[Rfam]
Small nucleolar RNA snR60/Z15/Z230/Z193/J17: an 84-nucleotide RNA from Magallana gigas.
Pairs were carried over by alignment from the consensus structure.
Its family is annotated with RNA processing and nucleolus in the Gene Ontology.
The family's RNA type in Rfam is C/D-box small nucleolar RNA.
Taxonomically the source falls in Magallana (Eukaryota, Opisthokonta, Lophotrochozoa, Bivalvia).
The family has 23 seed sequences and 3,592 matches in Rfam 15.1.
The match comes from Rfam's covariance-model search (50 bits).

RNA sequence: GUGUCAUAGAUGAUGAGAUCAUAGUUCAUCAGAUUUUUAAGUGAAGACCACACAAAUGUCUUUCGUUCCUAGCUGAUAUGCACU
Dot-bracket structure: ....((((....................................................................))))....